RNA sequence: GGUCAUGAGUGCCAGCGUUCAGCCCCGGCUUGCUGGCCGGCAACCCUCGUGUUCGCGGUGGGGUGCCCCGGGUGAGGACCGGGCCGGCGGCGACCGCCGCACGGCAAGCGCGGACC
Numbered sequence: 001g002g003u004c005a006u007g008a009g010u011g012c013c014a015g016c017g018u019u020c021a022g023c024c025c026c027g028g029c030u031u032g033c034u035g036g037c038c039g040g041c042a043a044c045c046c047u048c049g050u051g052u053u054c055g056c057g058g059u060g061g062g063g064u065g066c067c068c069c070g071g072g073u074g075a076g077g078a079c080c081g082g083g084c085c086g087g088c089g090g091c092g093a094c095c096g097c098c099g100c101a102c103g104g105c106a107a108g109c110g111c112g113g114a115c116c
Stems, first nucleotide, its partner, number of pairs: 001080004009038001011037006021030002039067003044063003048058001083105004087100005